[Rfam]
The family of this 375-nucleotide sequence from Frondihabitans australicus is "Bacterial RNase P class A". The match comes from Rfam's covariance-model search (272 bits). NCBI's taxonomy places the organism under Bacteria, Bacillati, Actinomycetes, Microbacteriaceae, Frondihabitans.
RNA sequence: UGGGUCGGCAAGACGGUCGCGUCGCGUCGGGUCCGCCCGACGCGCCGAGGAACGUCCGGGCUCCACAGAGCAGGGCGGUGGGUAACACCCACCCGGGGCAACCCGCGAGACAGUGCAACAGAAAGCAGACCGCCGGCCCUCCUCGGAGGGCCGGUAAGGGUGAAACGGCGGUGUAAGAGACCACCAGCGGCCCGGGUGACCGGCCGGCUAGGUAAACCUCGCCCGGAGCAAGGUCAGACAGGGAACGUCGAGGCGGCUCGCCGAGUUCCCGGGUAGACCGCUAGAGCGGUGCGGCAACGUACCGCCGAGAUAGAUGGCCGUCCAUGCCGUGCUCGCACGGCAAGACAGAACCCGGCGUAGCAGCCGGCCCAUUCG
Numbered sequence: 001u002g003g004g005u006c007g008g009c010a011a012g013a014c015g016g017u018c019g020c021g022u023c024g025c026g027u028c029g030g031g032u033c034c035g036c037c038c039g040a041c042g043c044g045c046c047g048a049g050g051a052a053c054g055u056c057c058g059g060g061c062u063c064c065a066c067a068g069a070g071c072a073g074g075g076c077g078g079u080g081g082g083u084a085a086c087a088c089c090c091a092c093c094c095g096g097g098g099c100a101a102c103c104c105g106c107g108a109g110a111c112a113g114u115g116c117a118a119c120a121g122a123a124a125g126c127a128g129a130c131c132g133c134c135g136g137c138c139c140u141c142c143u144c145g146g147a148g149g150g151c152c153g154g155u156a157a158g159g160g161u162g163a164a165a166c167g168g169c170g171g172u173g174u175a176a177g178a179g180a181c182c183a184c185c186a187g188c189g190g191c192c193c194g195g196g197u198g199a200c201c202g203g204c205c206g207g208c209u210a211g212g213u214a215a216a217c218c219u220c221g222c223c224c225g226g227a228g229c230a231a232g233g234u235c236a237g238a239c240a241g242g243g244a245a246c247g248u249c250g251a252g253g254c255g256g257c258u259c260g261c262c263g264a265g266u267u268c269c270c271g272g273g274u275a276g277a278c279c280g281c282u283a284g285a286g287c288g289g290u291g292c293g294g295c296a297a298c299g300u301a302c303c304g305c306c307g308a309g310a311u312a313g314a315u316g317g318c319c320g321u322c323c324a325u326g327c328c329g330u331g332c333u334c335g336c337a338c339g340g341c342a343a344g345a346c347a348g349a350a351c352c353c354g355g356c357g358u359a360g361c362a363g364c365c366g367g368c369c370c371a372u373u374c375g
Base pairs, nucleotide, nucleotide: 001371002370003369004368005367006366007365008364009363012322013321014320015319016318017317018316020047021046023044024043025042026041027040028039029038030037052358053357054356056355057354058353059352060351061228062227063226064225068259069258070257071256073224074223075222076221077220078092079091080090081089082088093107094105095104096103097102108219109218113217114216115213116212130159131158132155133154134153135152136151137150138149139148140147167185168184170182171181172180187208188206189205190204191203193202194201195200232279233278234277235276241270242269243268244267245266246265252262253261254260286305287304288303289302290301291300292299293298